[Rfam]
RNA: ZMP/ZTP riboswitch aptamer (pfl RNA motif)
RNA sequence: UUCGUCUCACGUGACUGGCGAAACGCCGGCAAAAGCCGGCCAAGAUGGGGAUCCAUCGGGAAGCGUGAGAUUUCAACAGCCGUGCGCCUGGGCAGCCGAA
Dot-bracket structure: ...(((((((((..(([[[[........................((((....))))..))..))))))))).....(.(((...]]]]..))).).....